[Rfam]
RNA sequence: GAUCUUGCAAUUCGCCUCCCCUCUCUCUAUAUACAGAGGUGCAGGAGGGUUCGACCCUUGGCUAUGGCGAUAAACGGAACGUGGAAUAAGCGUAGUGGACCCGGGGGCAGUACCCGGCGUCUCCACCAUAUACACCGGGGCUUUGCGGCUCAGGCAGAUGGGGACGAAACAGGCUCGACACGCGUGGUAAAGACCUUCCUUUUGCCCGGCAUUGUACCGCCGUUAUCGGGCUAAACUUACAAGUGCCAAUGAUAACACUGAGGUGCUCGCUGUUGCUGCAUAAGCGAUAAGCGCGGUUCGGGAGGGCACCGGGCAACAGAAGCCCUCCCACU
Numbered sequence: 001g002a003u004c005u006u007g008c009a010a011u012u013c014g015c016c017u018c019c020c021c022u023c024u025c026u027c028u029a030u031a032u033a034c035a036g037a038g039g040u041g042c043a044g045g046a047g048g049g050u051u052c053g054a055c056c057c058u059u060g061g062c063u064a065u066g067g068c069g070a071u072a073a074a075c076g077g078a079a080c081g082u083g084g085a086a087u088a089a090g091c092g093u094a095g096u097g098g099a100c101c102c103g104g105g106g107g108c109a110g111u112a113c114c115c116g117g118c119g120u121c122u123c124c125a126c127c128a129u130a131u132a133c134a135c136c137g138g139g140g141c142u143u144u145g146c147g148g149c150u151c152a153g154g155c156a157g158a159u160g161g162g163g164a165c166g167a168a169a170c171a172g173g174c175u176c177g178a179c180a181c182g183c184g185u186g187g188u189a190a191a192g193a194c195c196u197u198c199c200u201u202u203u204g205c206c207c208g209g210c211a212u213u214g215u216a217c218c219g220c221c222g223u224u225a226u227c228g229g230g231c232u233a234a235a236c237u238u239a240c241a242a243g244u245g246c247c248a249a250u251g252a253u254a255a256c257a258c259u260g261a262g263g264u265g266c267u268c269g270c271u272g273u274u275g276c277u278g279c280a281u282a283a284g285c286g287a288u289a290a291g292c293g294c295g296g297u298u299c300g301g302g303a304g305g306g307c308a309c310c311g312g313g314c315a316a317c318a319g320a321a322g323c324c325c326u327c328c329c330a331c332u
Stems, first nucleotide, its partner, number of pairs: 041062002043058002066206005076199004081194002091184003095181003101117005118166007207222004212233001214231001217229002294311004301328006
The record is a 332-nucleotide RNA from Acetobacter sp. DmW_043, which matches "Alphaproteobacteria transfer-messenger RNA" in Rfam. From the family's description: Bacterial tmRNA, also known as 10Sa RNA or SsrA, is named for its dual tRNA and mRNA-like properties. Its role is to liberate the mRNA from a stalled ribosome. To accomplish this part of the tmRNA is used as a reading frame that ends in a translation stop signal. The broken mRNA is replaced in the ribosome by the tmRNA and translation of the tmRNA leads to addition of a proteolysis tag to the incomplete protein enabling recognition by a protease. The family's RNA type in Rfam is non-coding RNA gene.